[Rfam]
RNA sequence: UCGUAACACGAACCGGUGCUAAAGGGUCCUGCCCAACGGCUACUGACAGGGACCCUUUAGCACCGGUUCGUGUUACCAA
Numbered sequence: 001u002c003g004u005a006a007c008a009c010g011a012a013c014c015g016g017u018g019c020u021a022a023a024g025g026g027u028c029c030u031g032c033c034c035a036a037c038g039g040c041u042a043c044u045g046a047c048a049g050g051g052a053c054c055c056u057u058u059a060g061c062a063c064c065g066g067u068u069c070g071u072g073u074u075a076c077c078a079a
Base pairs, nucleotide, nucleotide: 003076004075005074006073007072008071009070010069011068012067013066014065015064016063017062018061019060020059021058022057023056024055025054026053027052029050030049034045
The record is a 79-nucleotide sequence from Sorghum bicolor, which matches "MIR5387 microRNA precursor family" in Rfam. The base pairs follow the family's consensus structure, which was predicted with RNAalifold. It scores 72 bits against the family's covariance model.